RNA sequence: GUAAAUUAACUACUAAAUCACACACGUAUCGUCACAUUUUUCGGGGUGCCUGGAAUCAAAUUUUGGGUCGAAUAAAUGGGGUGCGUGGAGGCGUGUU
Dot-bracket structure: ......................((((((((....(((((((((....(((((...........))))))))).))))).))))))))..........
Annotation: Shown here is a 97-nucleotide RNA sequence from Parashewanella curva, a member of the family "t44 RNA". Rfam describes the family as follows. This family consists of a number of bacterial RNA genes of between 135 and 170 bases in length. The t44 gene has been identified in several species of enteric bacteria but homologs have also been identified in Pseudomonas and Coxiella species. The t44 gene is found between the map and rpsB genes in all species in the full alignment apart from Shigella flexneri. The function of this RNA is unknown. A reference for the family is Tjaden et al. (2002), "Transcriptome analysis of Escherichia coli using high-density oligonucleotide probe arrays", Nucleic Acids Res. It is annotated as a small RNA. Pairs were carried over by alignment from the consensus structure, which was predicted with LocARNA.